[Rfam]
RNA sequence: AUUUUUGGAUAAUCGCGUGGUACCUUACGUACCAUGAGGAAAGUCCAUGCUAGCACUGGCUGUGAUGCCGGUAGUGUUUGUGCUAGGUGAAUUAAUAAGCCUAGGGACAUCUUUUUGAUGUUACGGCGAGUGAAAAAGCUAAGUCUUUUGAUAUGCUUGAAUAGCUCUGAAAAGUGCCACAGUGACGUAGUUCUUGGGAAAACCCGAGAAGUGGAACGCGGUAAACCCCUCAAGCUAGCAACCCAAACUUUGGUAGGGGCACGGGAUAGUAGGAAACGAACGAUUUAUCCUGACUGGAAACAGUAGACAGAUGAUUAUCGAAGGAGAUAAGGCCUAGUUAUCUCUGGAACAAAACAUGGCUUAUAGAA
Numbered sequence: 001a002u003u004u005u006u007g008g009a010u011a012a013u014c015g016c017g018u019g020g021u022a023c024c025u026u027a028c029g030u031a032c033c034a035u036g037a038g039g040a041a042a043g044u045c046c047a048u049g050c051u052a053g054c055a056c057u058g059g060c061u062g063u064g065a066u067g068c069c070g071g072u073a074g075u076g077u078u079u080g081u082g083c084u085a086g087g088u089g090a091a092u093u094a095a096u097a098a099g100c101c102u103a104g105g106g107a108c109a110u111c112u113u114u115u116u117g118a119u120g121u122u123a124c125g126g127c128g129a130g131u132g133a134a135a136a137a138g139c140u141a142a143g144u145c146u147u148u149u150g151a152u153a154u155g156c157u158u159g160a161a162u163a164g165c166u167c168u169g170a171a172a173a174g175u176g177c178c179a180c181a182g183u184g185a186c187g188u189a190g191u192u193c194u195u196g197g198g199a200a201a202a203c204c205c206g207a208g209a210a211g212u213g214g215a216a217c218g219c220g221g222u223a224a225a226c227c228c229c230u231c232a233a234g235c236u237a238g239c240a241a242c243c244c245a246a247a248c249u250u251u252g253g254u255a256g257g258g259g260c261a262c263g264g265g266a267u268a269g270u271a272g273g274a275a276a277c278g279a280a281c282g283a284u285u286u287a288u289c290c291u292g293a294c295u296g297g298a299a300a301c302a303g304u305a306g307a308c309a310g311a312u313g314a315u316u317a318u319c320g321a322a323g324g325a326g327a328u329a330a331g332g333c334c335u336a337g338u339u340a341u342c343u344c345u346g347g348a349a350c351a352a353a354a355c356a357u358g359g360c361u362u363a364u365a366g367a368a
Stems, first nucleotide, its partner, number of pairs: 004368003007364001008319007016036006041362003045359005050238005055072006078233003082229001083104006105124001106122006125228002128167004136158004143152003174226002176222003191210008242258003262292007293304004323345008

Rfam assigns this 368-nucleotide RNA from Streptococcus equinus to the family "Bacterial RNase P class B". The source organism's lineage runs through Bacteria, Bacillati, Bacilli, Streptococcaceae and Streptococcus. Ribonuclease P (RNase P) is a ubiquitous endoribonuclease, found in archaea, bacteria and eukarya as well as chloroplasts and mitochondria. Its best characterised activity is the generation of mature 5'-ends of tRNAs by cleaving the 5'-leader elements of precursor-tRNAs. Cellular RNase Ps are ribonucleoproteins. RNA from bacterial RNase Ps retains its catalytic activity in the absence of the protein subunit, i.e. it is a ribozyme. Isolated eukaryotic and archaeal RNase P RNA has not been shown to retain its catalytic function, but is still essential for the catalytic activity of the holoenzyme. Although the archaeal and eukaryotic holoenzyme s have a much greater protein content than the bacterial ones, the RNA cores from all the three lineages are homologous -- helices corresponding to P1, P2, P3, P4, and P10/11 are common to all cellular RNase P RNAs. Yet, there is considerable sequence variation, particularly among the eukaryotic RNAs. Pairs were carried over by alignment from the consensus structure, which is taken from published work.